RNA sequence: CGGUACUGUCUCCUGUACCAUUAACAUUGGAGGCUCUCGGUUAUUCUGUGGGUUGAGAGACCUUAGACACUUGUUGUCAGUAGUGUGGAGUGCGGUGGGGUUAGAUGAUUU
Number, nucleotide and partner (000 for none) at each position: 001c000002g019003g018004u017005a000006c000007u000008g034009u033010c032011u031012c030013c029014u000015g000016u000017a004018c003019c002020a000021u000022u000023a000024a000025c000026a000027u000028u000029g013030g012031a011032g010033g009034c008035u000036c094037u000038c092039g091040g000041u088042u087043a086044u085045u000046c083047u082048g000049u000050g063051g062052g061053u060054u059055g000056a000057g000058a000059g054060a053061c052062c051063u050064u000065a000066g078067a077068c076069a075070c000071u000072u000073g000074u000075u069076g068077u067078c066079a000080g000081u000082a047083g046084u000085g044086u043087g042088g041089a000090g000091u039092g038093c000094g036095g000096u000097g111098g110099g109100g000101u107102u000103a000104g000105a000106u000107g101108a000109u099110u098111u097
This 111-nucleotide RNA sequence from Terrihalobacillus insolitus belongs to the Rfam family "epsC RNA". Lineage of the source: Bacteria > Bacillati > Bacillota > Bacilli > Terrihalobacillus.